[Rfam]
RNA sequence: UGUUGGUGCUCUCGCAACGCUACUUUGUGAAUUCGGUCAGGUCUGGGAGGAAGCAGCCGUAGCAAACGACGUGUGUGAUGGGAUGUUGCUAGCAGGG
Dot-bracket structure: ...(((((.((((((.((((...(((((.....((((....(((....)))....))))..)))))....)))))...)))))...)))))......
Numbered sequence: 001u002g003u004u005g006g007u008g009c010u011c012u013c014g015c016a017a018c019g020c021u022a023c024u025u026u027g028u029g030a031a032u033u034c035g036g037u038c039a040g041g042u043c044u045g046g047g048a049g050g051a052a053g054c055a056g057c058c059g060u061a062g063c064a065a066a067c068g069a070c071g072u073g074u075g076u077g078a079u080g081g082g083a084u085g086u087u088g089c090u091a092g093c094a095g096g097g
Stems, first nucleotide, its partner, number of pairs: 004091005010083005015075001017074004024066005034059004042051003